Rfam assigns this 410-nucleotide sequence to the family "Vertebrate telomerase RNA".
The family's consensus secondary structure is taken from published work.
Clan: Telomerase clan.
Rfam describes the family as follows. Telomerase is a ribonucleoprotein reverse transcriptase that synthesises telomeric DNA. Telomerase RNAs differ greatly in sequence and structure between vertebrates, ciliates and yeasts, but they share a 5' pseudoknot structure close to the template sequence. Vertebrate telomerase RNAs have a 3' H/ACA snoRNA-like domain.
The family has 37 seed sequences and 523 matches in Rfam 15.1.
Rfam classes the family as a non-coding RNA gene.
It is one of the family's seed sequences.
On this family, see Chen et al., Cell 2000: "Secondary structure of vertebrate telomerase RNA".

RNA sequence: CCGCUGCGGCGGCAGGUGGGGGCUCAGUCUUUCUAACCCUAAGCGAAAUGUGACCCCUCCCCGCUGCAGCCGUCCGCUGUUUUACUCGCUGACUUUCAGCGGACGGGGGGAGCGGGUGGAGACGCCAACCAAAAAACGUCAGCGAGGGGCCCUCCCCUCCCACGCCGACCUGGGCCUGUGGUGGGGCCCGCCAGCGAAGUCCCCGCCGCCCCGCCCCGGUGAGGCCGCGGUCAGCCGGCUCGCGCCACUGCUGCCGCGAAGAGUUCGUCUCUGUCAGCCUCGGGGGCGGCCGGGGUGGAAGGGCGGGUCCCGAGCCCGUCGGCCGGGAGAGCAAACGUGAGCGGCAGCCCCUGCGCCACCGCCCUCCCCUAAGCUGUGGGGCCCGCGGUCGGGGCUGCGCUCAGACACGC
Numbered sequence: 001c002c003g004c005u006g007c008g009g010c011g012g013c014a015g016g017u018g019g020g021g022g023c024u025c026a027g028u029c030u031u032u033c034u035a036a037c038c039c040u041a042a043g044c045g046a047a048a049u050g051u052g053a054c055c056c057c058u059c060c061c062c063g064c065u066g067c068a069g070c071c072g073u074c075c076g077c078u079g080u081u082u083u084a085c086u087c088g089c090u091g092a093c094u095u096u097c098a099g100c101g102g103a104c105g106g107g108g109g110g111a112g113c114g115g116g117u118g119g120a121g122a123c124g125c126c127a128a129c130c131a132a133a134a135a136a137c138g139u140c141a142g143c144g145a146g147g148g149g150c151c152c153u154c155c156c157c158u159c160c161c162a163c164g165c166c167g168a169c170c171u172g173g174g175c176c177u178g179u180g181g182u183g184g185g186g187c188c189c190g191c192c193a194g195c196g197a198a199g200u201c202c203c204c205g206c207c208g209c210c211c212c213g214c215c216c217c218g219g220u221g222a223g224g225c226c227g228c229g230g231u232c233a234g235c236c237g238g239c240u241c242g243c244g245c246c247a248c249u250g251c252u253g254c255c256g257c258g259a260a261g262a263g264u265u266c267g268u269c270u271c272u273g274u275c276a277g278c279c280u281c282g283g284g285g286g287c288g289g290c291c292g293g294g295g296u297g298g299a300a301g302g303g304c305g306g307g308u309c310c311c312g313a314g315c316c317c318g319u320c321g322g323c324c325g326g327g328a329g330a331g332c333a334a335a336c337g338u339g340a341g342c343g344g345c346a347g348c349c350c351c352u353g354c355g356c357c358a359c360c361g362c363c364c365u366c367c368c369c370u371a372a373g374c375u376g377u378g379g380g381g382c383c384c385g386c387g388g389u390c391g392g393g394g395c396u397g398c399g400c401u402c403a404g405a406c407a408c409g410c
Stems, first nucleotide, its partner, number of pairs: 004167001006165003011160001015158002018155002021152002023149003057112004071105009088143006094136003170326002173324004184310009203292001205290005210284004226258005232253004237246003260272004339402004344396001347395005359388004366381004